[Rfam]
RNA: Group I catalytic intron
Organism: Clostridium cylindrosporum
RNA sequence: AGUUAUGCAUUCGUUUAAACUAUGGCUAGAAAUAAAGAGUGCCUUUAUGAAGUAAUUCAUAAAGUAAACAGGGUGAAUUGCGGGGAAGACCUUAGAGUCUUAGAUACUAACUUAUUUUAGUAAUAAAAUAAGGGCAAAGGGUAAUUCUGAUGGUAGUAAAAAUUCUAAGAAUUGGUUAAUCCGCAGCCAAGCUUCCAAAAUGGCAUAAAAGUAUGGAAGAAGGUUCAGAGACUAGAAAAAUGAGAAGCCUAUCAAUAAAUUUUUCCACGAGUGCCCUGUACCCAUAUCUAUGGGUAAUGAUAUAGUCCGAUACUUUAUAGAAAUAUAAAG
Numbered sequence: 001a002g003u004u005a006u007g008c009a010u011u012c013g014u015u016u017a018a019a020c021u022a023u024g025g026c027u028a029g030a031a032a033u034a035a036a037g038a039g040u041g042c043c044u045u046u047a048u049g050a051a052g053u054a055a056u057u058c059a060u061a062a063a064g065u066a067a068a069c070a071g072g073g074u075g076a077a078u079u080g081c082g083g084g085g086a087a088g089a090c091c092u093u094a095g096a097g098u099c100u101u102a103g104a105u106a107c108u109a110a111c112u113u114a115u116u117u118u119a120g121u122a123a124u125a126a127a128a129u130a131a132g133g134g135c136a137a138a139g140g141g142u143a144a145u146u147c148u149g150a151u152g153g154u155a156g157u158a159a160a161a162a163u164u165c166u167a168a169g170a171a172u173u174g175g176u177u178a179a180u181c182c183g184c185a186g187c188c189a190a191g192c193u194u195c196c197a198a199a200a201u202g203g204c205a206u207a208a209a210a211g212u213a214u215g216g217a218a219g220a221a222g223g224u225u226c227a228g229a230g231a232c233u234a235g236a237a238a239a240a241u242g243a244g245a246a247g248c249c250u251a252u253c254a255a256u257a258a259a260u261u262u263u264u265c266c267a268c269g270a271g272u273g274c275c276c277u278g279u280a281c282c283c284a285u286a287u288c289u290a291u292g293g294g295u296a297a298u299g300a301u302a303u304a305g306u307c308c309g310a311u312a313c314u315u316u317a318u319a320g321a322a323a324u325a326u327a328a329a330g
Base pairs, nucleotide, nucleotide: 005044007042008041009040010039011038048059049058050057068279069278070277071276072275074273075272079185080184081183082182083181084180089176090175091174186224187223193217194216199212201210228308230307231306232305233304234303281294282293283292284291285290315328316327317326318325319324